[Rfam]
RNA sequence: UUUCACGUCUUACGUGGCAGUACUUAGAUUUUUCUCCCCUCUCCGCUUAUUUCUAUAUUGAAGUCCCCUAGCGAAUCAUUAUUUUCUAAUACUGUCAGGUAAAGAUGUGAUA
Numbered sequence: 001u002u003u004c005a006c007g008u009c010u011u012a013c014g015u016g017g018c019a020g021u022a023c024u025u026a027g028a029u030u031u032u033u034c035u036c037c038c039c040u041c042u043c044c045g046c047u048u049a050u051u052u053c054u055a056u057a058u059u060g061a062a063g064u065c066c067c068c069u070a071g072c073g074a075a076u077c078a079u080u081a082u083u084u085u086c087u088a089a090u091a092c093u094g095u096c097a098g099g100u101a102a103a104g105a106u107g108u109g110a111u112a
Base pairs, nucleotide, nucleotide: 003110004109005108006107007106008105009104010102011101012100013099015097016096017095018094019093020092021091022090024089025088026087027086028085
Record summary: Rfam assigns this 112-nucleotide sequence from Caligus rogercresseyi to the family "mir-8/mir-141/mir-200 microRNA precursor family". The family has 164 seed sequences and 2,669 matches in Rfam 15.1. Taxonomically the source falls in Caligus (Eukaryota, Eumetazoa, Panarthropoda, Altocrustacea). A reference for the family is Lagos-Quintana et al. (2001), "Identification of novel genes coding for small expressed RNAs", Science. Clan: mir-8 microRNA precursor clan. Its family is annotated with RISC complex and miRNA-mediated post-transcriptional gene silencing in the Gene Ontology.